[Rfam]
RNA: PreQ1 (pre queuosine) riboswitch aptamer
RNA sequence: GAUUUAGUGGUUCGUAACCCUCCCACAAUAAAAAACUAAGGAUCC
Numbered sequence: 001g002a003u004u005u006a007g008u009g010g011u012u013c014g015u016a017a018c019c020c021u022c023c024c025a026c027a028a029u030a031a032a033a034a035a036c037u038a039a040g041g042a043u044c045c
Stems, first nucleotide, its partner, number of pairs: 007026004015038002